[Rfam]
Nucleotides: 179
Base pairs, nucleotide, nucleotide: 006174007173008172009171010170011169017084018083019082020081021080022079023078024077025076033069034068035067036066037065038064039063088117089116090115091114092113093112094111095110096109097108098107099106118145119144120143121142122141123140124139125138126137127136128135147164148163149162150161151160152159153158
Number, partner (000 for none) and nucleotide at each position: 001000c002000u003000a004000u005000g006174g007173g008172a009171u010170a011169g012000a013000g014000g015000c016000u017084g018083c019082g020081g021080u022079u023078u024077g025076u026000a027000a028000a029000a030000g031000u032000a033069g034068c035067a036066c037065g038064g039063a040000c041000g042000a043000g044000a045000u046000u047000c048000a049000a050000u051000g052000a053000c054000a055000u056000u057000u058000a059000u060000g061000a062000c063039u064038c065037c066036g067035u068034g069033u070000g071000a072000a073000a074000g075000g076025a077024u078023a079022a080021a081020c082019u083018g084017c085000c086000g087000a088117a089116g090115u091114u092113u093112g094111g095110g096109u097108a098107u099106a100000u101000c102000a103000u104000u105000g106099u107098a108097u109096a110095u111094u112093c113092a114091a115090g116089u117088u118145g119144g120143u121142a122141a123140u124139g125138u126137u127136u128135u129000c130000g131000a132000a133000a134000a135128g136127g137126a138125a139124c140123a141122u142121u143120a144119u145118u146000g147164u148163c149162a150161c151160g152159u153158u154000a155000u156000u157000a158153g159152a160151c161150g162149u163148g164147g165000a166000g167000u168000g169011c170010u171009a172008u173007c174006u175000u176000c177000g178000g179000a
A member of the RNA family "Lysine riboswitch aptamer" from Bacillus sp. FJAT-50079, 179 nucleotides long. A search with the family's covariance model found it, with a score of 130 bits. The base pairs follow the family's consensus structure, which is taken from published work. For this family Rfam cites "Riboswitches Control Fundamental Biochemical Pathways in Bacillus subtilis and Other Bacteria" (Mandal et al., Cell, 2003).